[Rfam]
A member of the RNA family "SAM riboswitch aptamer (S box leader)" from Clostridium amylolyticum, 112 nucleotides long. A search with the family's covariance model found it, with a score of 88 bits. Rfam links the family to the GO term regulation of gene expression.
RNA sequence: UUCUUAUCAAGAGAGGUGGAGGGAUUGGCCCUUUGAAACCUCGGCAGCGGACUCUCUUAAAUUUAGAGAAAACUGUGCCAAAUCCAACAAGAUUAAUCUUGAGAGAUAAGAA
Numbered sequence: 001u002u003c004u005u006a007u008c009a010a011g012a013g014a015g016g017u018g019g020a021g022g023g024a025u026u027g028g029c030c031c032u033u034u035g036a037a038a039c040c041u042c043g044g045c046a047g048c049g050g051a052c053u054c055u056c057u058u059a060a061a062u063u064u065a066g067a068g069a070a071a072a073c074u075g076u077g078c079c080a081a082a083u084c085c086a087a088c089a090a091g092a093u094u095a096a097u098c099u100u101g102a103g104a105g106a107u108a109a110g111a112a
Base pairs, nucleotide, nucleotide: 001112002111003110004109005108006107007106008105013042014041015040016039017038021031022030023029025087026086027085028084043079044078045077046076048075049074053069054068055067056066057065083104088101089100090099091098092097